Rfam assigns this 167-nucleotide part of an RNA from Dactylonectria estremocensis to the family "Ascomycota telomerase RNA". The family is grouped with related families in Rfam's "Telomerase clan". On this family, see Qi et al., Nucleic Acids Res 2013: "The common ancestral core of vertebrate and fungal telomerase RNAs". Lineage of the source: Eukaryota > Ascomycota > saccharomyceta > Hypocreales > Dactylonectria. Gene Ontology terms of the family: telomerase catalytic core complex, telomere maintenance via telomerase and telomerase activity.

RNA sequence: CCAACUGUUGGGUACCGAUAGGUUCUGGCAGGUCCCUCAGGUUGUCCUGAAAAGGACGGCUGGAGAUGACAGGGCGGUUUUUACGGAUGUCUUUUGUCCGCCCGUUAAUGCCCUCCUUUGCCGCUCUUGCAAGCACGACGGAGAGGAAACAAAAACCAAUCCUUGUU
Numbered sequence: 001c002c003a004a005c006u007g008u009u010g011g012g013u014a015c016c017g018a019u020a021g022g023u024u025c026u027g028g029c030a031g032g033u034c035c036c037u038c039a040g041g042u043u044g045u046c047c048u049g050a051a052a053a054g055g056a057c058g059g060c061u062g063g064a065g066a067u068g069a070c071a072g073g074g075c076g077g078u079u080u081u082u083a084c085g086g087a088u089g090u091c092u093u094u095u096g097u098c099c100g101c102c103c104g105u106u107a108a109u110g111c112c113c114u115c116c117u118u119u120g121c122c123g124c125u126c127u128u129g130c131a132a133g134c135a136c137g138a139c140g141g142a143g144a145g146g147a148a149a150c151a152a153a154a155a156c157c158a159a160u161c162c163u164u165g166u167u
Stems, first nucleotide, its partner, number of pairs: 006030007014023003035068001036065003040061007048053001086161003089156002092154006111146002113143004120139001122137002